[Rfam]
RNA sequence: GAGGUAAUGAUUAGUCACCCACAUAUAUGCUGAAGGAUUGGCUUCAGCGUUUCUACCAGGACACCGUAAUGUCCGGACUAUGCGGGAAAGCGAUUUUAAG
Dot-bracket structure: .................(((.((((...(((((((......)))))))........(.(((((......))))).)..)))).)))..............